[Rfam]
RNA sequence: GCAGACAAUACUCUGUUCUUUACUGUCACUCCAGUCUAGAACUUUUUAUGUCUGCUAUAUUAUCGUCAGAAUAUAUCAACUACUGGCUUUUUCUGAAAAGCAGGUGCUGAUAUGUUCUGCAACAAAAAA
Numbered sequence: 001g002c003a004g005a006c007a008a009u010a011c012u013c014u015g016u017u018c019u020u021u022a023c024u025g026u027c028a029c030u031c032c033a034g035u036c037u038a039g040a041a042c043u044u045u046u047u048a049u050g051u052c053u054g055c056u057a058u059a060u061u062a063u064c065g066u067c068a069g070a071a072u073a074u075a076u077c078a079a080c081u082a083c084u085g086g087c088u089u090u091u092u093c094u095g096a097a098a099a100g101c102a103g104g105u106g107c108u109g110a111u112a113u114g115u116u117c118u119g120c121a122a123c124a125a126a127a128a129a
Stems, first nucleotide, its partner, number of pairs: 001055006015042005023034003067119012081106004
This 129-nucleotide RNA sequence from Gadus morhua belongs to the Rfam family "Small nucleolar RNA SNORA77". A search with the family's covariance model found it, with a score of 45 bits. For this family Rfam cites "A computational screen for mammalian pseudouridylation guide H/ACA RNAs" (Schattner et al., RNA, 2006). It is annotated as an H/ACA-box small nucleolar RNA. Rfam describes the family as follows. ACA63 (SNORA77) is a member of the H/ACA class of snoRNAs that guide the sites of modification of uridines to pseudouridines. The family has 19 seed sequences and 843 matches in Rfam 15.1.